Shown here is a 102-nucleotide sequence from Brevibacillus fulvus, a member of the family "Purine riboswitch aptamer". Taxonomically the source falls in Brevibacillus (Bacteria, Bacillati, Bacillota, Bacilli). It scores 76 bits against the family's covariance model. The family has 133 seed sequences and 4,097 matches in Rfam 15.1.
RNA sequence: AUGACGAUCAAUAGAUCAUCUCGUAUAAUCUCAGGGAUAUGGCCUGUAAGUUUCUACCGUCUGACCGUAAAUUGGACGACUACGAGGGGAGUGCUGCGGCUG
Numbered sequence: 001a002u003g004a005c006g007a008u009c010a011a012u013a014g015a016u017c018a019u020c021u022c023g024u025a026u027a028a029u030c031u032c033a034g035g036g037a038u039a040u041g042g043c044c045u046g047u048a049a050g051u052u053u054c055u056a057c058c059g060u061c062u063g064a065c066c067g068u069a070a071a072u073u074g075g076a077c078g079a080c081u082a083c084g085a086g087g088g089g090a091g092u093g094c095u096g097c098g099g100c101u102g
Base pairs, nucleotide, nucleotide: 019087020086021085022084023083024082025081029049032046033045034044035043058078059077060076061075062074063073064072